Description:
A member of the RNA family "let-7 microRNA precursor family", 87 nucleotides long. Pairs were carried over by alignment from the consensus structure, which was predicted with RNAalifold. Rfam describes the family as follows. This family represents the microRNAs (miRNA) let-7 and mir-98. let-7 was identified from a study of developmental timing in C. elegans, and was later shown to be part of a much larger class of non-coding RNAs termed miRNAs.
RNA sequence: UCAGAGUGAGGUAGUAGAUUGUAUAGUUGUGGGGUAGUGAUUUUACCCUGUUUAGGAGAUAACUAUACAAUCUAUUGCCUUCCCUGA
Numbered sequence: 001u002c003a004g005a006g007u008g009a010g011g012u013a014g015u016a017g018a019u020u021g022u023a024u025a026g027u028u029g030u031g032g033g034g035u036a037g038u039g040a041u042u043u044u045a046c047c048c049u050g051u052u053u054a055g056g057a058g059a060u061a062a063c064u065a066u067a068c069a070a071u072c073u074a075u076u077g078c079c080u081u082c083c084c085u086g087a
Base pairs, nucleotide, nucleotide: 001087002086003085004084006082008081009080010079011078012077013076014075015074016073017072018071019070020069021068022067023066024065025064026063027062032048033047034046035045051058052057